[Rfam]
RNA sequence: UGGACAUUUUUUUUCAGUUUCUUCUCAAUGUGAAGAUAACACUUCAUAAAUGUCCUAGAGAAAUAUAGUAGCUUUCUGUUCAUCCUUUGCAAGUUAAAAGGGUGGAUCGUUCCACUACUGACAUAU
Numbered sequence: 001u002g003g004a005c006a007u008u009u010u011u012u013u014u015c016a017g018u019u020u021c022u023u024c025u026c027a028a029u030g031u032g033a034a035g036a037u038a039a040c041a042c043u044u045c046a047u048a049a050a051u052g053u054c055c056u057a058g059a060g061a062a063a064u065a066u067a068g069u070a071g072c073u074u075u076c077u078g079u080u081c082a083u084c085c086u087u088u089g090c091a092a093g094u095u096a097a098a099a100g101g102g103u104g105g106a107u108c109g110u111u112c113c114a115c116u117a118c119u120g121a122c123a124u125a126u
Stems, first nucleotide, its partner, number of pairs: 002055008011046001017040003020036005066120006085100004
Dot-bracket structure: .((((((((.(.....((((((((.......))))).))).....).))))))))..........((((((.............((((........))))..............))))))......

A member of the RNA family "Small Cajal body specific RNA 24" from Fukomys damarensis, 126 nucleotides long. The family's consensus secondary structure was predicted with RNAfold. From the family's description: scaRNAs are a specific class of small nuclear RNAs which localise to the Cajal bodies and guide the modification of RNA polymerase II transcribed spliceosomal RNAs U1, U2, U4, U5 and U12. ACA12 belongs to the H/ACA box class of guide RNAs as it has the predicted hairpin-hinge-hairpin-tail structure,the conserved H/ACA-box motifs and is found associated with GAR1. Rfam links the family to the GO terms RNA processing, Cajal body and nucleolus.